This 102-nucleotide RNA from Allosphingosinicella ginsenosidimutans belongs to the Rfam family "Manganese Mn2+ riboswitch aptamer (yybP-ykoY)". The organism belongs to Allosphingosinicella, within Bacteria. On this family, see Argaman et al., Curr Biol 2001: "Novel small RNA-encoding genes in the intergenic regions of Escherichia coli".

RNA sequence: AUCGCGGUCACUUGGGGAGUAGCCGCCGCGCCGAUGCGCGGAGCUUCGCGUCAACAUGCUCGGUCGAGAGGCCGUGGCGCGGAGCGACCGGGACACCGGUCG
Numbered sequence: 001a002u003c004g005c006g007g008u009c010a011c012u013u014g015g016g017g018a019g020u021a022g023c024c025g026c027c028g029c030g031c032c033g034a035u036g037c038g039c040g041g042a043g044c045u046u047c048g049c050g051u052c053a054a055c056a057u058g059c060u061c062g063g064u065c066g067a068g069a070g071g072c073c074g075u076g077g078c079g080c081g082g083a084g085c086g087a088c089c090g091g092g093a094c095a096c097c098g099g100u101c102g
Stems, first nucleotide, its partner, number of pairs: 026041002044084010061074005085102007